[Rfam]
RNA sequence: AAACCCGUAACGGGGAGCUUGCCGUUUUGCAGGCUGAGAGUAGACGAAACGCGUCUUGACCCAUAACCUGAUUUGGAUAAUGCCAACGUAGGGAUAUACUAUACGUGUUUUU
Numbered sequence: 001a002a003a004c005c006c007g008u009a010a011c012g013g014g015g016a017g018c019u020u021g022c023c024g025u026u027u028u029g030c031a032g033g034c035u036g037a038g039a040g041u042a043g044a045c046g047a048a049a050c051g052c053g054u055c056u057u058g059a060c061c062c063a064u065a066a067c068c069u070g071a072u073u074u075g076g077a078u079a080a081u082g083c084c085a086a087c088g089u090a091g092g093g094a095u096a097u098a099c100u101a102u103a104c105g106u107g108u109u110u111u112u
Base pairs, nucleotide, nucleotide: 007099008098009097012062013061014060016057017034018033019032020031021030042056043055044054045053067092068091069090070089073086074085075084076083